[Rfam]
RNA sequence: CUUCUUGCUACAUCCUCACGACUAAUGACAAUACUGAAUAUUUUAUUUAUCUUGUGAAUAUCAGCAUUCUCAUUAGCCGCGCGAACCGGCUGUAGCUAAAGAAGCUCACUUUCUUUAGAAAUAAAUUGGCAAAAAUCUAUUUCCUAAAAUUAUUUUGUAAGUGUAAACCAAUUCUAAAAAUUUUUUACGCUUUCUAGCAGAAAAGGGGCCUCAGGCCCCUUUUC
Numbered sequence: 001c002u003u004c005u006u007g008c009u010a011c012a013u014c015c016u017c018a019c020g021a022c023u024a025a026u027g028a029c030a031a032u033a034c035u036g037a038a039u040a041u042u043u044u045a046u047u048u049a050u051c052u053u054g055u056g057a058a059u060a061u062c063a064g065c066a067u068u069c070u071c072a073u074u075a076g077c078c079g080c081g082c083g084a085a086c087c088g089g090c091u092g093u094a095g096c097u098a099a100a101g102a103a104g105c106u107c108a109c110u111u112u113c114u115u116u117a118g119a120a121a122u123a124a125a126u127u128g129g130c131a132a133a134a135a136u137c138u139a140u141u142u143c144c145u146a147a148a149a150u151u152a153u154u155u156u157g158u159a160a161g162u163g164u165a166a167a168c169c170a171a172u173u174c175u176a177a178a179a180a181u182u183u184u185u186u187a188c189g190c191u192u193u194c195u196a197g198c199a200g201a202a203a204a205g206g207g208g209c210c211u212c213a214g215g216c217c218c219c220u221u222u223u224c
Base pairs, nucleotide, nucleotide: 001104002103003102004101007096010093011092012091017083019081020080022076023075024074025073026072027071028070110180111179205219206218207217208216209215210214
This 224-nucleotide sequence from Arsenophonus nasoniae belongs to the Rfam family "SraG RNA". Gene Ontology terms of the family: sRNA-mediated gene silencing and mRNA binding. The family's consensus secondary structure was predicted with PFOLD. For this family Rfam cites "The small RNA SraG participates in PNPase homeostasis" (Fontaine et al., RNA, 2016). This RNA was discovered in E. coli during a large scale screen. Evidence was found for specific cleavage of this RNA.